A member of the RNA family "Singlet oxygen resistance RNA X" from Parasedimentitalea huanghaiensis, 79 nucleotides long.
From the family's description: SorX (RSs2461)like SorY is a singlet oxygen induced sRNA that counteracts oxidative stress by targeting mRNA for a transporter in Rhodobacter. It also has an impact on resistance against organic hydroperoxides.
Its family is annotated with response to photooxidative stress in the Gene Ontology.
By type it is a small RNA.
[Rfam]
RNA sequence: CACUCUCGAAGGCGAUGGCAAUUGCCUCUCCUUCACCUCCCUGUUGGACUUCGGCCGAGCUUAGUGCUCGGCCUUUUUU
Numbered sequence: 001c002a003c004u005c006u007c008g009a010a011g012g013c014g015a016u017g018g019c020a021a022u023u024g025c026c027u028c029u030c031c032u033u034c035a036c037c038u039c040c041c042u043g044u045u046g047g048a049c050u051u052c053g054g055c056c057g058a059g060c061u062u063a064g065u066g067c068u069c070g071g072c073c074u075u076u077u078u079u
Stems, first nucleotide, its partner, number of pairs: 008034005014028001053073008